[Rfam]
RNA sequence: ACGAGGUGUGCGGGAGAGCCCCGGCGAACACAGCCGGGCACCGAAGGAGCAAGCACUCCCCGCCAAUCUCUCAGGUACCGAGUACCGCUCGCCUCCG
Numbered sequence: 001a002c003g004a005g006g007u008g009u010g011c012g013g014g015a016g017a018g019c020c021c022c023g024g025c026g027a028a029c030a031c032a033g034c035c036g037g038g039c040a041c042c043g044a045a046g047g048a049g050c051a052a053g054c055a056c057u058c059c060c061c062g063c064c065a066a067u068c069u070c071u072c073a074g075g076u077a078c079c080g081a082g083u084a085c086c087g088c089u090c091g092c093c094u095c096c097g
Stems, first nucleotide, its partner, number of pairs: 006092003010088004020038006040076003043072002047070003053063002
Description:
The family of this 97-nucleotide RNA sequence from Microbacterium aerolatum is "Glycine riboswitch aptamer". Rfam's curators write: This family represents the bacterial glycine riboswitch. Glycine riboswitches usually consist of two metabolite-binding aptamers domains with similar structures in tandem. The aptamers cooperatively bind glycine to regulate the expression of downstream genes. A search with the family's covariance model found it, with a score of 66 bits. On this family, see Mandal et al., Science 2004: "A glycine-dependent riboswitch that uses cooperative binding to control gene expression".